[Rfam]
RNA sequence: UGUUACGAUCAGUUUUGCUGGUUUGCCCCUGCUUUAUUAAACUUGCUGUGCAAAUCCAUGCAAAACUGAUUGUGGCA
Numbered sequence: 001u002g003u004u005a006c007g008a009u010c011a012g013u014u015u016u017g018c019u020g021g022u023u024u025g026c027c028c029c030u031g032c033u034u035u036a037u038u039a040a041a042c043u044u045g046c047u048g049u050g051c052a053a054a055u056c057c058a059u060g061c062a063a064a065a066c067u068g069a070u071u072g073u074g075g076c077a
Base pairs, nucleotide, nucleotide: 003075004074005073006072007071008070009069010068011067012066013065014064015063016062017061018060020057021056022054023053024052025051026050028048031046032045

Shown here is a 77-nucleotide RNA sequence from Leptobrachium leishanense, a member of the family "mir-19 microRNA precursor family". The family has 106 seed sequences and 2,337 matches in Rfam 15.1. The family is grouped with related families in Rfam's "mir-19 clan". The match comes from Rfam's covariance-model search (69 bits). The family's consensus secondary structure was predicted with RNAalifold.